Rfam assigns this 92-nucleotide RNA to the family "Rhodo-rpoB RNA".
RNA sequence: AUAUCGGGAGGCAGCCGGUGGGACGGAUGCCACGAAUGGAUAUCAAGCCCCCUGUCAUAUGGGUGGUUCAGUGCGGCCCCGGCGCUGAAACA
Numbered sequence: 001a002u003a004u005c006g007g008g009a010g011g012c013a014g015c016c017g018g019u020g021g022g023a024c025g026g027a028u029g030c031c032a033c034g035a036a037u038g039g040a041u042a043u044c045a046a047g048c049c050c051c052c053u054g055u056c057a058u059a060u061g062g063g064u065g066g067u068u069c070a071g072u073g074c075g076g077c078c079c080c081g082g083c084g085c086u087g088a089a090a091c092a
Stems, first nucleotide, its partner, number of pairs: 001043005010031004015026003066091003069087005